[Rfam]
RNA: rpsB sRNA
Organism: Aureimonas sp. Leaf460
RNA sequence: CACACACGGAAUUCGGGACGAUCGUUCGAAUCUUCGAAGGAUCAGCCCACCGGUUGCAGCCAUGAGGCUGCUUCGUUCCGUGGAGGCUAAACCGGUAAAAGGAACGUU
Numbered sequence: 001c002a003c004a005c006a007c008g009g010a011a012u013u014c015g016g017g018a019c020g021a022u023c024g025u026u027c028g029a030a031u032c033u034u035c036g037a038a039g040g041a042u043c044a045g046c047c048c049a050c051c052g053g054u055u056g057c058a059g060c061c062a063u064g065a066g067g068c069u070g071c072u073u074c075g076u077u078c079c080g081u082g083g084a085g086g087c088u089a090a091a092c093c094g095g096u097a098a099a100a101g102g103a104a105c106g107u108u
Stems, first nucleotide, its partner, number of pairs: 001085001003083001005082007015048002023036002056071006